[Rfam]
Acido-Lenti-1 RNA: a 46-nucleotide RNA sequence from Chloracidobacterium thermophilum. The base pairs follow the family's consensus structure, which is taken from published work. The match comes from Rfam's covariance-model search (49 bits). Rfam classes the family as a small RNA.

RNA sequence: CCCGGCGUUGAAACGCCGGGCUAAAUUCAACCGUCGCUACGCGACG
Numbered sequence: 001c002c003c004g005g006c007g008u009u010g011a012a013a014c015g016c017c018g019g020g021c022u023a024a025a026u027u028c029a030a031c032c033g034u035c036g037c038u039a040c041g042c043g044a045c046g
Base pairs, nucleotide, nucleotide: 001020002019003018004017005016006015007014008013033045034044035043036042037041